Annotation: This 161-nucleotide RNA sequence from Romboutsia lituseburensis belongs to the Rfam family "M-box riboswitch aptamer (ykoK leader)". The pairing is the family consensus, mapped onto this sequence.
[Rfam]
RNA sequence: UUAAUAUAUCGGUAGGUGAGGUUACCUUAGGGAUACGGGUUGAUGCCGCGAAAUAGUGGAGACACUAUUAGCUGGUUAGCAGGAUACAUCGAAAGUGAAGGUGUAUUUUAAUUCAAUAUCAUGCCCUAAGAAGCUAAAGCUUGAACGAGAGAAUAUAUACU
Numbered sequence: 001u002u003a004a005u006a007u008a009u010c011g012g013u014a015g016g017u018g019a020g021g022u023u024a025c026c027u028u029a030g031g032g033a034u035a036c037g038g039g040u041u042g043a044u045g046c047c048g049c050g051a052a053a054u055a056g057u058g059g060a061g062a063c064a065c066u067a068u069u070a071g072c073u074g075g076u077u078a079g080c081a082g083g084a085u086a087c088a089u090c091g092a093a094a095g096u097g098a099a100g101g102u103g104u105a106u107u108u109u110a111a112u113u114c115a116a117u118a119u120c121a122u123g124c125c126c127u128a129a130g131a132a133g134c135u136a137a138a139g140c141u142u143g144a145a146c147g148a149g150a151g152a153a154u155a156u157a158u159a160c161u
Stems, first nucleotide, its partner, number of pairs: 005157005011146001013099001015141003020135003026130007039117005046074001048072002055066004082108004088102003
It scores 101 bits against the family's covariance model. The family has 159 seed sequences and 1,095 matches in Rfam 15.1. The source organism's lineage runs through Bacteria, Clostridia, Peptostreptococcales, Romboutsia and Romboutsia lituseburensis. M-box riboswitch, also know as ykoK leader is described as a metaloregulatory RNA that sense divalent metals and function as a genetic control element of genes related to divalent metal transport in bacteria. It was first reported upstream of the B.subtilis ykoK gene and genes with related functions in other bacteria.